[Rfam]
RNA sequence: UGCUGAUAAAGGCAAACUUAUUGAAAAAUAAGGACGCAAAGCCAUGGGUCUAAGGAAGCGACGCUUCUAUGAUUGCCAGGUUGCCAAA
Dot-bracket structure: ...........((...((((((....))))))...))..((((.((((((....((((.....))))...)))..)))))))......

A member of the RNA family "c-di-GMP-I riboswitch aptamer" from Thermotalea metallivorans, 88 nucleotides long. Pairs were carried over by alignment from the consensus structure, which is taken from published work. It scores 89 bits against the family's covariance model.